[Rfam]
RNA: mir-204 microRNA precursor family
RNA sequence: AUGUGACCUGUGGGUUUCCCUUUGUCAUCCUAUGCCUGGAACUGUCUGAAAGGCAGGGACAGCAAAGGGAGGCUCGCUGCCACCUCU
Numbered sequence: 001a002u003g004u005g006a007c008c009u010g011u012g013g014g015u016u017u018c019c020c021u022u023u024g025u026c027a028u029c030c031u032a033u034g035c036c037u038g039g040a041a042c043u044g045u046c047u048g049a050a051a052g053g054c055a056g057g058g059a060c061a062g063c064a065a066a067g068g069g070a071g072g073c074u075c076g077c078u079g080c081c082a083c084c085u086c087u
Base pairs, nucleotide, nucleotide: 017070018069019068020067021066022065024063025062028059029058030057031056034054035053036052037051